[Rfam]
RNA sequence: CGGCCCCUGUCUUUGGUUAUCUAGCUGUAUGAGUGUCAGAAUCCCGCCAUAAAGCUACUUAACCAAAAGCAGGGAUCC
Numbered sequence: 001c002g003g004c005c006c007c008u009g010u011c012u013u014u015g016g017u018u019a020u021c022u023a024g025c026u027g028u029a030u031g032a033g034u035g036u037c038a039g040a041a042u043c044c045c046g047c048c049a050u051a052a053a054g055c056u057a058c059u060u061a062a063c064c065a066a067a068a069g070c071a072g073g074g075a076u077c078c
Stems, first nucleotide, its partner, number of pairs: 002077002005074001007072004012067008022057005028051004
Shown here is a 78-nucleotide RNA from Petromyzon marinus, a member of the family "mir-9/mir-79 microRNA precursor family".
On this family, see Lagos-Quintana et al., Curr Biol 2002: "Identification of tissue-specific microRNAs from mouse".
Pairs were carried over by alignment from the consensus structure, which was predicted with RNAalifold.
Its family is annotated with RISC complex and miRNA-mediated post-transcriptional gene silencing in the Gene Ontology.
The source organism's lineage runs through Eukaryota, Chordata, Vertebrata, Hyperoartia and Petromyzon.